Description
This 137-nucleotide sequence from Jeotgalibaca dankookensis belongs to the Rfam family "Ribosomal protein L20 leader".

[Rfam]
RNA sequence: AAAUCAAAGCAGAAGCACCCGCUUCUCGCCUAAGUUGACAGUUGUCCUUGGGCUAGAUAUGUACAAAUUAGUGACAGUGAAAUUCACUGUGACCUUGUGGCGGGUAUCGGAGGAGAUAUCCGCCUUUUUCUGCGCUU
Numbered sequence: 001a002a003a004u005c006a007a008a009g010c011a012g013a014a015g016c017a018c019c020c021g022c023u024u025c026u027c028g029c030c031u032a033a034g035u036u037g038a039c040a041g042u043u044g045u046c047c048u049u050g051g052g053c054u055a056g057a058u059a060u061g062u063a064c065a066a067a068u069u070a071g072u073g074a075c076a077g078u079g080a081a082a083u084u085c086a087c088u089g090u091g092a093c094c095u096u097g098u099g100g101c102g103g104g105u106a107u108c109g110g111a112g113g114a115g116a117u118a119u120c121c122g123c124c125u126u127u128u129u130c131u132g133c134g135c136u137u
Base pairs, nucleotide, nucleotide: 011026012025013024014023015022016021028053029052030051037046038045039044099124100123101122102121103120104119105118106117107116108115
A reference for the family is Zengel and Lindahl (1994), "Diverse mechanisms for regulating ribosomal protein synthesis in Escherichia coli", Prog Nucleic Acid Res Mol Biol. About the family: This family is a putative r-protein leader autoregulatory structure found in B. subtilis and other low-GC Gram-positive bacteria. It is located in the 5' untranslated regions of mRNAs encoding initiation factor 3 followed by ribosomal proteins L35 and L20 (infC-rpmI-rplT). A Rho-independent transcription terminator structure that is probably involved in regulation is included at the 3' end.